[Rfam]
RNA: c-di-GMP-I riboswitch aptamer
Organism: Pelotomaculum propionicicum
Nucleotides: 091
Base pairs, nucleotide, nucleotide: 012038013037017033018032019031020030022029023028042084043083044082046081047080048079049076050075051074056070058068059067
Number, partner (000 for none) and nucleotide at each position: 001000a002000a003000u004000c005000g006000u007000g008000u009000u010000g011000g012038g013037c014000a015000a016000a017033a018032c019031c020030g021000c022029g023028c024000g025000a026000a027000a028023g029022c030020c031019g032018g033017u034000g035000a036000c037013g038012c039000a040000a041000a042084g043083c044082c045000a046081u047080g048079g049076g050075u051074c052000u053000a054000a055000a056070g057000g058068c059067c060000u061000u062000u063000a064000u065000u066000g067059g068058g069000g070056c071000c072000a073000u074051g075050a076049c077000u078000g079048c080047c081046a082044g083043g084042c085000c086000g087000c088000a089000a090000g091000g